[Rfam]
Nucleotides: 164
Stems, first nucleotide, its partner, number of pairs: 012122004016048005023042005049090004054086001056083003060079004092117003095113003099109002138163006146155003
Number, partner (000 for none) and nucleotide at each position: 001000c002000u003000u004000u005000u006000u007000a008000c009000c010000u011000g012122g013121c014120a015119g016048g017047g018046g019045a020044g021000a022000c023042a024041c025040c026039a027038u028000g029000a030000u031000c032000a033000g034000g035000c036000a037000g038027g039026u040025g041024g042023u043000c044020u045019u046018c047017c048016c049090a050089g051088g052087g053000c054086g055000a056083g057082g058081c059000u060079c061078a062077u063076c064000c065000c066000c067000u068000g069000c070000a071000c072000u073000c074000c075000a076063g077062g078061u079060g080000u081058g082057c083056u084000g085000a086054c087052c088051c089050c090049u091000g092117u093116g094115a095113u096112u097111u098000c099109c100108c101000c102000a103000a104000a105000u106000g107000c108100g109099g110000g111097a112096a113095a114000c115094u116093c117092g118000a119015c120014u121013g122012c123000a124000u125000a126000a127000u128000u129000u130000g131000u132000g133000g134000u135000a136000g137000u138163g139162g140161g141160g142159g143158a144000c145000u146155g147154c148153g149000u150000u151000c152000g153148u154147g155146c156000u157000c158143u159142c160141c161140c162139c163138u164000g

Rfam assigns this 164-nucleotide RNA sequence from Eudyptula minor to the family "U1 spliceosomal RNA". The match comes from Rfam's covariance-model search (138 bits). The source organism's lineage runs through Eukaryota, Bilateria, Coelurosauria, Spheniscidae and Eudyptula. Rfam describes the family as follows. U1 is a small nuclear RNA (snRNA) component of the spliceosome (involved in pre-mRNA splicing). Its 5' end forms complementary base pairs with the 5' splice junction, thus defining the 5' donor site of an intron.